[Rfam]
The family of this 102-nucleotide sequence from Heyndrickxia oleronia is "Manganese Mn2+ riboswitch aptamer (yybP-ykoY)".
A search with the family's covariance model found it, with a score of 59 bits.
Rfam's curators write: This RNA was originally discovered in E. coli during a large scale screen and was named SraF. The family was later found to exist upstream of related families of protein genes in many bacteria, including the the yybP and ykoK genes in B. subtilis. The specific functions of these proteins are unknown, but this structured RNA element may be involved in their genetic regulation as a riboswitch.

RNA sequence: CGAAUUGUCAAAGGGGAGUAGCGUUAGAUGUGUUAUACAUCUAAAACAAAGUCGUCAUUCCAUGGAUGAAUUCCAUCGGCUUUGUUGGCAUAAUUUAUGUCU
Numbered sequence: 001c002g003a004a005u006u007g008u009c010a011a012a013g014g015g016g017a018g019u020a021g022c023g024u025u026a027g028a029u030g031u032g033u034u035a036u037a038c039a040u041c042u043a044a045a046a047c048a049a050a051g052u053c054g055u056c057a058u059u060c061c062a063u064g065g066a067u068g069a070a071u072u073c074c075a076u077c078g079g080c081u082u083u084g085u086u087g088g089c090a091u092a093a094u095u096u097a098u099g100u101c102u
Stems, first nucleotide, its partner, number of pairs: 025043003045086010062076005
Dot-bracket structure: ........................(((.............))).((((((((((.......(((((.....)))))))))))))))................